[Rfam]
Nucleotides: 265
Stems, first nucleotide, its partner, number of pairs: 001159008011145004017045007047102005055096003062089005067082006106140003113133005162177003179262001182260004186202005207253003210249005216242002223236005
Number, partner (000 for none) and nucleotide at each position: 001159g002158g003157a004156g005155u006154a007153u008152u009000g010000a011145g012144g013143a014142g015000a016000g017045c018044c019043u020042u021041c022040c023039c024000u025000a026000g027000u028000a029000c030000g031000a032000g033000a034000g035000g036000a037000c038000c039023g040022g041021g042020a043019a044018g045017g046000a047102c048101u049100g050099a051098c052000c053000a054000c055096u056095a057094g058000u059000g060000u061000a062089c063088c064087g065086g066085u067082u068081g069080u070079c071078g072077c073000g074000c075000c076000a077072g078071c079070g080069g081068c082067a083000u084000c085066g086065c087064c088063g089062g090000g091000u092000a093000g094057c095056u096055a097000c098051g099050u100049c101048g102047g103000g104000a105000c106140g107139g108138g109000a110000u111000a112000a113133c114132c115131g116130c117129u118000g119000a120000a121000a122000g123000c124000a125000u126000c127000u128000a129117a130116g131115u132114g133113g134000g135000a136000a137000g138108c139107c140106c141000c142014c143013u144012c145011c146000a147000a148000g149000a150000u151000g152008a153007g154006u155005a156004c157003u158002c159001c160000c161000a162177g163176a164175g165000u166000c167000u168000u169000c170000g171000g172000a173000c174000u175164c176163u177162c178000a179262g180000a181000a182260g183259g184258g185257c186202u187201g188200u189199g190198c191000g192000a193000g194000a195000c196000u197000a198190g199189c200188a201187c202186g203000u204000u205000g206000a207253u208252a209251g210249g211248c212247g213246g214245u215000a216242g217241g218000u219000g220000g221000a222000a223236g224235c225234g226233u227232g228000g229000c230000a231000a232227c233226a234225u235224g236223u237000g238000a239000a240000g241217c242216c243000g244000a245214g246213c247212c248211g249210u250000a251209c252208u253207a254000a255000u256000c257185g258184c259183c260182c261000g262179u263000g264000a265000g
Record summary: The record is a 265-nucleotide part of an RNA from uncultured bacterium AD254-A9, which matches "Bacterial large subunit ribosomal RNA" in Rfam. Pairs were carried over by alignment from the consensus structure, which is taken from published work. The family has 102 seed sequences and 51,934 matches in Rfam 15.1.